The record is a 46-nucleotide sequence from Sitta europaea, which matches "Histone 3' UTR stem-loop" in Rfam. NCBI's taxonomy places the organism under Eukaryota, Opisthokonta, Amniota, Saurischia, Sitta.

RNA sequence: CUAAAGGCUCUUUUAAGAGCCACUACAUUGCACAAGAGAGUUGAGU
Numbered sequence: 001c002u003a004a005a006g007g008c009u010c011u012u013u014u015a016a017g018a019g020c021c022a023c024u025a026c027a028u029u030g031c032a033c034a035a036g037a038g039a040g041u042u043g044a045g046u
Stems, first nucleotide, its partner, number of pairs: 006021006